[Rfam]
The record is an 82-nucleotide RNA sequence from Diplocloster agilis, which matches "Glycine riboswitch aptamer" in Rfam. A search with the family's covariance model found it, with a score of 61 bits. Rfam's curators write: This family represents the bacterial glycine riboswitch. Glycine riboswitches usually consist of two metabolite-binding aptamers domains with similar structures in tandem. The aptamers cooperatively bind glycine to regulate the expression of downstream genes. In Bacillus subtilis, this riboswitch is found upstream of the gcvT operon which controls glycine degradation.
RNA sequence: AUGAUGGAUAUGGGAGAGACUGUGUAAGCGGCGCCGAAGGGGAAUUGCAAAAACUCUCAGGCAAAAGGACCGUACCCGGACG
Numbered sequence: 001a002u003g004a005u006g007g008a009u010a011u012g013g014g015a016g017a018g019a020c021u022g023u024g025u026a027a028g029c030g031g032c033g034c035c036g037a038a039g040g041g042g043a044a045u046u047g048c049a050a051a052a053a054c055u056c057u058c059a060g061g062c063a064a065a066a067g068g069a070c071c072g073u074a075c076c077c078g079g080a081c082g
Stems, first nucleotide, its partner, number of pairs: 006077002009074005020031004033062003036058002040056003